[Rfam]
A member of the RNA family "Archaeal small subunit ribosomal RNA" from Halococcus hamelinensis, 600 nucleotides of a longer RNA.
The match comes from Rfam's covariance-model search (1568 bits).
Rfam links the family to the GO terms structural constituent of ribosome and ribosome.
NCBI's taxonomy places the organism under Archaea, Methanobacteriati, Methanobacteriota, Halobacteria, Halococcus hamelinensis.
For this family Rfam cites "The comparative RNA web (CRW) site: an online database of comparative sequence and structure information for ribosomal, intron, and other RNAs" (Cannone et al., BMC Bioinformatics, 2002).

RNA sequence: UGGCGGGGGAGCACUACAACCGGAGGAGCCUGCGGUUUAAUUGGACUCAACGCCGGACAUCUCACCGGCACCGACAACGUGCAGUGACGGUCAGUUUGAUGAGCUUACCUGAGCCGUUGAGAGGAGGUGCAUGGCCGCCGUCAGCUCGUACCGUGAGGCGUCCUGUUAAGUCAGGCAACGAGCGAGACCCGCGUCCAUAAUUGCCAGCAGCACCCUUGUGGUGGCUGGGUACAUUAUGGAGACUGCCGUCGCUAAGACGGAGGAAGGAACGGGCAACGGUAGGUCAGUAUGCCCCGAAUGUGCCGGGCGACACGCGGGCUACAAUGGCCAGGACAGUGGGACGCUACCCCGAGAGGGGACGCUAAUCUCCUAACCCUGGUCGUAGUUCGGAUUGCGGAUUGAAACUCAUCCGCAUGAAGCUGGAUUCGGUAGUAAUCGCGUUUCAGAAGAGCGCGGUGAAUACGUCCCUGCUCCUUGCACACACCGCCCGUCAAAUCACCCGAGUGAGGUCGGGAUGAGGCCGACGCAACGUCGGUCGAAUCUGGGCUUCGCAAGGGGGAUUAAGUCGUAACAAGGUAGCCGUAGGGGAAUCUGCGGCUG
Numbered sequence: 001u002g003g004c005g006g007g008g009g010a011g012c013a014c015u016a017c018a019a020c021c022g023g024a025g026g027a028g029c030c031u032g033c034g035g036u037u038u039a040a041u042u043g044g045a046c047u048c049a050a051c052g053c054c055g056g057a058c059a060u061c062u063c064a065c066c067g068g069c070a071c072c073g074a075c076a077a078c079g080u081g082c083a084g085u086g087a088c089g090g091u092c093a094g095u096u097u098g099a100u101g102a103g104c105u106u107a108c109c110u111g112a113g114c115c116g117u118u119g120a121g122a123g124g125a126g127g128u129g130c131a132u133g134g135c136c137g138c139c140g141u142c143a144g145c146u147c148g149u150a151c152c153g154u155g156a157g158g159c160g161u162c163c164u165g166u167u168a169a170g171u172c173a174g175g176c177a178a179c180g181a182g183c184g185a186g187a188c189c190c191g192c193g194u195c196c197a198u199a200a201u202u203g204c205c206a207g208c209a210g211c212a213c214c215c216u217u218g219u220g221g222u223g224g225c226u227g228g229g230u231a232c233a234u235u236a237u238g239g240a241g242a243c244u245g246c247c248g249u250c251g252c253u254a255a256g257a258c259g260g261a262g263g264a265a266g267g268a269a270c271g272g273g274c275a276a277c278g279g280u281a282g283g284u285c286a287g288u289a290u291g292c293c294c295c296g297a298a299u300g301u302g303c304c305g306g307g308c309g310a311c312a313c314g315c316g317g318g319c320u321a322c323a324a325u326g327g328c329c330a331g332g333a334c335a336g337u338g339g340g341a342c343g344c345u346a347c348c349c350c351g352a353g354a355g356g357g358g359a360c361g362c363u364a365a366u367c368u369c370c371u372a373a374c375c376c377u378g379g380u381c382g383u384a385g386u387u388c389g390g391a392u393u394g395c396g397g398a399u400u401g402a403a404a405c406u407c408a409u410c411c412g413c414a415u416g417a418a419g420c421u422g423g424a425u426u427c428g429g430u431a432g433u434a435a436u437c438g439c440g441u442u443u444c445a446g447a448a449g450a451g452c453g454c455g456g457u458g459a460a461u462a463c464g465u466c467c468c469u470g471c472u473c474c475u476u477g478c479a480c481a482c483a484c485c486g487c488c489c490g491u492c493a494a495a496u497c498a499c500c501c502g503a504g505u506g507a508g509g510u511c512g513g514g515a516u517g518a519g520g521c522c523g524a525c526g527c528a529a530c531g532u533c534g535g536u537c538g539a540a541u542c543u544g545g546g547c548u549u550c551g552c553a554a555g556g557g558g559g560a561u562u563a564a565g566u567c568g569u570a571a572c573a574a575g576g577u578a579g580c581c582g583u584a585g586g587g588g589a590a591u592c593u594g595c596g597g598c599u600g
Stems, first nucleotide, its partner, number of pairs: 001481002003478003007475007016465002020429005025322001027320008035311002041056004065306007075119004081114002089109003093105003123295002126293004132289002134284003137280004144183006151158002162175004189272003194240007204229002208227003211223004243263002246260005326381007338369003343362002347358004388419001393414007435457008484575001486572001489568002492565001494562004499557003504552008513543004519537008577600010